[Rfam]
RNA sequence: UUUCGUUCUCGGGGCGGGGUGAAAUUCCCCACCGGCGGUAAGAACUUAGGUUUAAGCCCGCGAGCGUCUAAUCGUAUAGAUUAGAGUCAGCAGAUCUGGUGUGAUUCCAGAGCCGACGGUCAUAGUCCGGAUGAUAGAGAGCGUGU
Numbered sequence: 001u002u003u004c005g006u007u008c009u010c011g012g013g014g015c016g017g018g019g020u021g022a023a024a025u026u027c028c029c030c031a032c033c034g035g036c037g038g039u040a041a042g043a044a045c046u047u048a049g050g051u052u053u054a055a056g057c058c059c060g061c062g063a064g065c066g067u068c069u070a071a072u073c074g075u076a077u078a079g080a081u082u083a084g085a086g087u088c089a090g091c092a093g094a095u096c097u098g099g100u101g102u103g104a105u106u107c108c109a110g111a112g113c114c115g116a117c118g119g120u121c122a123u124a125g126u127c128c129g130g131a132u133g134a135u136a137g138a139g140a141g142c143g144u145g146u
Stems, first nucleotide, its partner, number of pairs: 004143007017029003031126002033115002035061004056113002064091002095111005117129003

Shown here is a 146-nucleotide RNA from Marinomonas sp. MED121, a member of the family "FMN riboswitch aptamer (RFN element)". Pairs were carried over by alignment from the consensus structure, which is taken from published work. Rfam's curators write: The RFN element is a highly conserved domain that is found frequently in the 5'-untranslated regions of prokaryotic mRNAs that encode for flavin mononucleotide (FMN) biosynthesis and transport proteins. It is one of the family's seed sequences.